[Rfam]
Rfam assigns this 75-nucleotide RNA sequence from Anaerofilum sp. An201 to the family "Fluoride riboswitch aptamer (crcB RNA motif)".
RNA sequence: UGCACCCACGGGAAUGAAGUUCUCCCGAGGCUUUUGCCUGAACUGCCGUUAUGAGCUGAUGACUUCUGUGAUGAA
Numbered sequence: 001u002g003c004a005c006c007c008a009c010g011g012g013a014a015u016g017a018a019g020u021u022c023u024c025c026c027g028a029g030g031c032u033u034u035u036g037c038c039u040g041a042a043c044u045g046c047c048g049u050u051a052u053g054a055g056c057u058g059a060u061g062a063c064u065u066c067u068g069u070g071a072u073g074a075a
Stems, first nucleotide, its partner, number of pairs: 010026004016066006045056002
Overview
The organism belongs to Anaerofilum, within Bacteria. The family's consensus secondary structure is taken from published work.